RNA sequence: UUCAACAGAAAGAGCUUUUCUUGAGAUCGAAGUUGAUGCGAGAACUCGGUGCAGUCCGCCGGUUUUGGCAGCAAAUUUCGUCAACGAUGACAUGGGAGAAAAUGGGAAGUAGGUUCCAUGGGACUGUUGUGAGCCAUACGACUUUGUGACCCGUAAGACACCAAUCUCUACGAGGACAGAACCGGGACCCAUCUCGCGUUGGAGUCAAAGUUUAGCACUUGUCCGGCCUGGUCGAUGGAGUGAGCGGUGUUGAUACGGGGAGUUUCGUCGUGGAAGACUUUUUGGGCGUUGGUAAGGACAGGCCAAUAGGGAAGGUAGUCCUAGGUUGUCCUCUGCUCGUAGAGUGGAGGGCAACCCCCUGCUUUGUUGG
Numbered sequence: 001u002u003c004a005a006c007a008g009a010a011a012g013a014g015c016u017u018u019u020c021u022u023g024a025g026a027u028c029g030a031a032g033u034u035g036a037u038g039c040g041a042g043a044a045c046u047c048g049g050u051g052c053a054g055u056c057c058g059c060c061g062g063u064u065u066u067g068g069c070a071g072c073a074a075a076u077u078u079c080g081u082c083a084a085c086g087a088u089g090a091c092a093u094g095g096g097a098g099a100a101a102a103u104g105g106g107a108a109g110u111a112g113g114u115u116c117c118a119u120g121g122g123a124c125u126g127u128u129g130u131g132a133g134c135c136a137u138a139c140g141a142c143u144u145u146g147u148g149a150c151c152c153g154u155a156a157g158a159c160a161c162c163a164a165u166c167u168c169u170a171c172g173a174g175g176a177c178a179g180a181a182c183c184g185g186g187a188c189c190c191a192u193c194u195c196g197c198g199u200u201g202g203a204g205u206c207a208a209a210g211u212u213u214a215g216c217a218c219u220u221g222u223c224c225g226g227c228c229u230g231g232u233c234g235a236u237g238g239a240g241u242g243a244g245c246g247g248u249g250u251u252g253a254u255a256c257g258g259g260g261a262g263u264u265u266c267g268u269c270g271u272g273g274a275a276g277a278c279u280u281u282u283u284g285g286g287c288g289u290u291g292g293u294a295a296g297g298a299c300a301g302g303c304c305a306a307u308a309g310g311g312a313a314g315g316u317a318g319u320c321c322u323a324g325g326u327u328g329u330c331c332u333c334u335g336c337u338c339g340u341a342g343a344g345u346g347g348a349g350g351g352c353a354a355c356c357c358c359c360u361g362c363u364u365u366g367u368u369g370g
Stems, first nucleotide, its partner, number of pairs: 186206003189202003208220004
Overview
Shown here is a 370-nucleotide part of an RNA from Daldinia sp. EC12, a member of the family "Ascomycota telomerase RNA". Rfam links the family to the GO terms telomerase catalytic core complex, telomerase activity and telomere maintenance via telomerase. By type it is a non-coding RNA gene. A reference for the family is Qi et al. (2013), "The common ancestral core of vertebrate and fungal telomerase RNAs", Nucleic Acids Res. It scores 295 bits against the family's covariance model. Its Rfam clan is "Telomerase clan". Pairs were carried over by alignment from the consensus structure.